A member of the RNA family "Bacterial large subunit ribosomal RNA" from Acetobacteraceae bacterium AT-5844, 336 nucleotides of a longer RNA.
Pairs were carried over by alignment from the consensus structure, which is taken from published work.
[Rfam]
RNA sequence: UGAGAGAACCAUGCUGAAGGAACUAGGCAAAUUGCUCGCGUAACUUCGGGAUAAGCGAGACCCCAGAUUGGGCAACCAGUUUGGGGUGGCACAGACCAGGGGGUGGCGACUGUUUAGUAAAAACACAGGGCUCUGCGAAAUCGAGAGAUGACGUAUAGGGUCUGACGCCUGCCCGGUGCCGGAAGGUUAAGGGGAGAUGUGCAAGCAUCGAACCGAAGCCCCGGUAAACGGCGGCCGUAACUAUAACGGUCCUAAGGUAGCGAAAUUCCUUGUCGGGUAAGUUCCGACCUGCACGAAUGGCGUAACGACCUCCCCACUGUCUCCAGCAUGGGCUCA
Numbered sequence: 001u002g003a004g005a006g007a008a009c010c011a012u013g014c015u016g017a018a019g020g021a022a023c024u025a026g027g028c029a030a031a032u033u034g035c036u037c038g039c040g041u042a043a044c045u046u047c048g049g050g051a052u053a054a055g056c057g058a059g060a061c062c063c064c065a066g067a068u069u070g071g072g073c074a075a076c077c078a079g080u081u082u083g084g085g086g087u088g089g090c091a092c093a094g095a096c097c098a099g100g101g102g103g104u105g106g107c108g109a110c111u112g113u114u115u116a117g118u119a120a121a122a123a124c125a126c127a128g129g130g131c132u133c134u135g136c137g138a139a140a141u142c143g144a145g146a147g148a149u150g151a152c153g154u155a156u157a158g159g160g161u162c163u164g165a166c167g168c169c170u171g172c173c174c175g176g177u178g179c180c181g182g183a184a185g186g187u188u189a190a191g192g193g194g195a196g197a198u199g200u201g202c203a204a205g206c207a208u209c210g211a212a213c214c215g216a217a218g219c220c221c222c223g224g225u226a227a228a229c230g231g232c233g234g235c236c237g238u239a240a241c242u243a244u245a246a247c248g249g250u251c252c253u254a255a256g257g258u259a260g261c262g263a264a265a266u267u268c269c270u271u272g273u274c275g276g277g278u279a280a281g282u283u284c285c286g287a288c289c290u291g292c293a294c295g296a297a298u299g300g301c302g303u304a305a306c307g308a309c310c311u312c313c314c315c316a317c318u319g320u321c322u323c324c325a326g327c328a329u330g331g332g333c334u335c336a
Base pairs, nucleotide, nucleotide: 001336002335003334004333009331010330011329012328013327014326015325016324018322019321020320035059036058037057038056039055044049060087061086062085063084064083065082066081067080068079069078070077071076088092100315101314102313103312105310106309107307108306111125112124113123128163129162130161131160132159133158134157135156136153140149141148142147166302167301168300169299171232172231173230176229177228178225179224180223181222182221185220186219187218191214192213196209197208198207199206200205233251234250235249236248237247238246252256262289272288273287274286275285276284277283